Archaeal large subunit ribosomal RNA: a 358-nucleotide part of an RNA from Methanosphaera stadtmanae. Rfam's curators put it in the seed alignment. The family is grouped with related families in Rfam's "LSU clan". The family's consensus secondary structure is taken from published work.
[Rfam]
RNA sequence: UAGGGUAAACCAGCUAAGGGAAUUCGGCAAUUUAGCUCCGUAACUUUGGGAUAAGGAGUGCCAGCUACGUGUAGUAGCUGGUCGCAGUGACUAGGGAGGUUCGACUGUUUAAUAAAAACAUAGCUCCCAGCUAGCCCGUAAGGGUGUGUACUGGGGGCGACACCUGCCCAGUGCUGGCACGUGAAGCUGGGGUUCAACCUGGUGAAGCGCCAGUAAACGGCGGGGGUAACUAUAACCCUCUUAAGGUAGCGAAAUGCCUUGCCGGACAAGUACCGGCCUGCAUGAAUGGUAGAACGAAAUCUCCACUGUCCCUAGCUGGAACCUAGUGAACCUGCUAUUCUGGUGCACAAGCCAGAGA
Numbered sequence: 001u002a003g004g005g006u007a008a009a010c011c012a013g014c015u016a017a018g019g020g021a022a023u024u025c026g027g028c029a030a031u032u033u034a035g036c037u038c039c040g041u042a043a044c045u046u047u048g049g050g051a052u053a054a055g056g057a058g059u060g061c062c063a064g065c066u067a068c069g070u071g072u073a074g075u076a077g078c079u080g081g082u083c084g085c086a087g088u089g090a091c092u093a094g095g096g097a098g099g100u101u102c103g104a105c106u107g108u109u110u111a112a113u114a115a116a117a118a119c120a121u122a123g124c125u126c127c128c129a130g131c132u133a134g135c136c137c138g139u140a141a142g143g144g145u146g147u148g149u150a151c152u153g154g155g156g157g158c159g160a161c162a163c164c165u166g167c168c169c170a171g172u173g174c175u176g177g178c179a180c181g182u183g184a185a186g187c188u189g190g191g192g193u194u195c196a197a198c199c200u201g202g203u204g205a206a207g208c209g210c211c212a213g214u215a216a217a218c219g220g221c222g223g224g225g226g227u228a229a230c231u232a233u234a235a236c237c238c239u240c241u242u243a244a245g246g247u248a249g250c251g252a253a254a255u256g257c258c259u260u261g262c263c264g265g266a267c268a269a270g271u272a273c274c275g276g277c278c279u280g281c282a283u284g285a286a287u288g289g290u291a292g293a294a295c296g297a298a299a300u301c302u303c304c305a306c307u308g309u310c311c312c313u314a315g316c317u318g319g320a321a322c323c324u325a326g327u328g329a330a331c332c333u334g335c336u337a338u339u340c341u342g343g344u345g346c347a348c349a350a351g352c353c354a355g356a357g358a
Stems, first nucleotide, its partner, number of pairs: 001325004010319007018311003035059005044049001060082009083087001095304007102296002106120003123158008131148001134145004162290003166221003171218002173214005180209003187202005222240006241245001261277005339356005